[Rfam]
RNA sequence: UUUCGCGUUUGGCUUGCGCGCCAUGAUCCCGUUACCUACCGCGUGCAGCAGGUGCGUUUUACCGAGACCCGUCCCGCCAUA
Numbered sequence: 001u002u003u004c005g006c007g008u009u010u011g012g013c014u015u016g017c018g019c020g021c022c023a024u025g026a027u028c029c030c031g032u033u034a035c036c037u038a039c040c041g042c043g044u045g046c047a048g049c050a051g052g053u054g055c056g057u058u059u060u061a062c063c064g065a066g067a068c069c070c071g072u073c074c075c076g077c078c079a080u081a
Stems, first nucleotide, its partner, number of pairs: 004043004009038001011036002016032003020029001051078004056074001061072002